[Rfam]
RNA sequence: AGAGAAUGAGUAUUACAUCAGGUACUGGUAGAGUUAUGAAACUACCAGUCCCUGGGUAACACUUGAUUUCU
Dot-bracket structure: (((((...(((...((.(..((.((((((..............)))))).)).).))...)))...)))))
RNA: mir-12 microRNA precursor family